[Rfam]
RNA sequence: UAUCUGUUAUGGAUAGUCGAGUGGGAGAUCAGCCGCUAGUCGGUGACCUUGCUAAGGUCUUGGCCAGCGCCGACUGGUGCCCGGUACGAAUCCUGGGGUUGUCGAUGUACUCGUGCGAGUAAUCCACGAUCGCUACACGGCAUUAAGCAAUGGAAGUGACCCUUGAGGGAAGCAAUUCUGCAGAGACACUUCCACCCUGGGGUGGCGUCAUCGGAUUACACCGUCGCGUUACAGGGAACCUGGCUGUAUGGUUGGGCAACCACUUUU
Number, nucleotide and partner (000 for none) at each position: 001u015002a014003u013004c012005u000006g000007u000008u000009a000010u000011g000012g004013a003014u002015a001016g000017u000018c000019g265020a264021g263022u262023g261024g260025g000026a000027g000028a000029u255030c254031a253032g252033c251034c000035g249036c000037u246038a245039g244040u243041c242042g240043g239044u238045g000046a000047c235048c234049u066050u000051g064052c063053u062054a061055a060056g000057g000058u000059c000060u055061u054062g053063g052064c051065c000066a049067g000068c228069g227070c226071c000072g225073a224074c223075u000076g222077g221078u220079g219080c000081c214082c213083g212084g211085u210086a208087c207088g206089a000090a203091u202092c201093c200094u199095g198096g197097g196098g195099u000100u142101g000102u140103c139104g138105a000106u137107g136108u135109a134110c000111u129112c128113g127114u126115g125116c000117g124118a123119g000120u000121a000122a000123u118124c117125c115126a114127c113128g112129a111130u000131c000132g000133c000134u109135a108136c107137a106138c104139g103140g102141c000142a100143u147144u000145a000146a000147g143148c000149a000150a000151u194152g193153g192154a191155a190156g189157u188158g000159a000160c000161c000162c185163u184164u183165g000166a000167g000168g000169g178170a177171a176172g000173c000174a000175a000176u171177u170178c169179u000180g000181c000182a000183g164184a163185g162186a000187c000188a157189c156190u155191u154192c153193c152194a151195c098196c097197c096198u095199g094200g093201g092202g091203u090204g000205g000206c088207g087208u086209c000210a085211u084212c083213g082214g081215a000216u000217u000218a000219c079220a078221c077222c076223g074224u073225c072226g070227c069228g068229u000230u000231a000232c000233a000234g048235g047236g000237a000238a044239c043240c042241u000242g041243g040244c039245u038246g037247u000248a000249u035250g000251g033252u032253u031254g030255g029256g000257c000258a000259a000260c024261c023262a022263c021264u020265u019266u000267u000
The record is a 267-nucleotide RNA sequence from Aspergillus nidulans, which matches "Fungal signal recognition particle RNA" in Rfam. Rfam links the family to the GO terms signal recognition particle, plasma membrane targeting, SRP-dependent cotranslational protein targeting to membrane, signal sequence recognition and signal recognition particle, endoplasmic reticulum targeting. The source organism's lineage runs through Eukaryota, Ascomycota, Pezizomycotina, Eurotiomycetes and Aspergillus nidulans. The match comes from Rfam's covariance-model search (177 bits).